[Rfam]
RNA sequence: GACCCCAGUCAGUUUUGCUGGUUUGCAUUCAGCUUAAGACAGAGCGCUGUGCAAAUCCAUGCAAAACUGACAGUGGCA
Numbered sequence: 001g002a003c004c005c006c007a008g009u010c011a012g013u014u015u016u017g018c019u020g021g022u023u024u025g026c027a028u029u030c031a032g033c034u035u036a037a038g039a040c041a042g043a044g045c046g047c048u049g050u051g052c053a054a055a056u057c058c059a060u061g062c063a064a065a066a067c068u069g070a071c072a073g074u075g076g077c078a
Stems, first nucleotide, its partner, number of pairs: 003076002006073001008071011020058002022055007031048003
mir-19 microRNA precursor family: a 78-nucleotide RNA from Sinocyclocheilus anshuiensis. On this family, see Lagos-Quintana et al., Science 2001: "Identification of novel genes coding for small expressed RNAs". The source organism's lineage runs through Eukaryota, Craniata, Clupeocephala, Cyprinidae and Sinocyclocheilus. The base pairs follow the family's consensus structure, which was predicted with RNAalifold.